[Rfam]
RNA sequence: CUGGUGGGUGGGGGGAUCACAAUAGGACUGUUCUUGUCCUGAUCCCUGUCAGAUUUAUUGAAAUCUGCAAUCCUACU
Numbered sequence: 001c002u003g004g005u006g007g008g009u010g011g012g013g014g015g016a017u018c019a020c021a022a023u024a025g026g027a028c029u030g031u032u033c034u035u036g037u038c039c040u041g042a043u044c045c046c047u048g049u050c051a052g053a054u055u056u057a058u059u060g061a062a063a064u065c066u067g068c069a070a071u072c073c074u075a076c077u
Stems, first nucleotide, its partner, number of pairs: 013046006021077001023075005030038001050067007

Annotation: Shown here is a 77-nucleotide RNA sequence from Polypterus senegalus, a member of the family "Mammalian CPEB3 ribozyme". NCBI's taxonomy places the organism under Eukaryota, Teleostomi, Cladistia, Polypteridae, Polypterus. The match comes from Rfam's covariance-model search (42 bits).